[Rfam]
RNA sequence: CGAGCCGAGGGGCGCUGCGACGGACCCGGAUCCCGCGGAUCUGGUCCGCCACGCUCGGCCCGGUGGUCAGACGUCAAGGGCGCCCCCUGAUG
Number, nucleotide and partner (000 for none) at each position: 001c000002g061003a000004g059005c058006c057007g056008a055009g000010g000011g000012g000013c000014g000015c000016u000017g000018c000019g000020a000021c048022g047023g046024a045025c044026c043027c000028g000029g000030a000031u000032c000033c000034c000035g000036c000037g000038g000039a000040u000041c000042u000043g026044g025045u024046c023047c022048g021049c000050c000051a000052c000053g000054c000055u008056c007057g006058g005059c004060c000061c002062g000063g000064u000065g000066g000067u000068c000069a000070g000071a000072c000073g000074u000075c000076a000077a000078g000079g000080g000081c000082g000083c000084c000085c000086c000087c000088u000089g000090a000091u000092g000
RNA: SAH (S-adenosyl-L-homocysteine) riboswitch aptamer
Organism: Actinoplanes sp. N902-109